Alphaproteobacterial sRNA ar7: a 145-nucleotide RNA from Oricola cellulosilytica. It is annotated as a small RNA.
[Rfam]
RNA sequence: AAUCGGCAUAUUGCGCCGAUGUCCGGCUAAGGCCCGUCCCCCGCCGAUCCGGACAGGUGGCAGCCUAAUCCCCCUCUCCGGGCUGCCACUCUUUGGACCUUUUCGCUGAGCCACCGCCUGUGAGAACAGGCGGUGGCUUUGGCGU
Numbered sequence: 001a002a003u004c005g006g007c008a009u010a011u012u013g014c015g016c017c018g019a020u021g022u023c024c025g026g027c028u029a030a031g032g033c034c035c036g037u038c039c040c041c042c043g044c045c046g047a048u049c050c051g052g053a054c055a056g057g058u059g060g061c062a063g064c065c066u067a068a069u070c071c072c073c074c075u076c077u078c079c080g081g082g083c084u085g086c087c088a089c090u091c092u093u094u095g096g097a098c099c100u101u102u103u104c105g106c107u108g109a110g111c112c113a114c115c116g117c118c119u120g121u122g123a124g125a126a127c128a129g130g131c132g133g134u135g136g137c138u139u140u141g142g143c144g145u
Stems, first nucleotide, its partner, number of pairs: 022053005028047001031045003056090010103141001108139012
Dot-bracket structure: .....................(((((.(..(((.........))).).)))))..((((((((((...............))))))))))............(....((((((((((((........)))))))))))).)....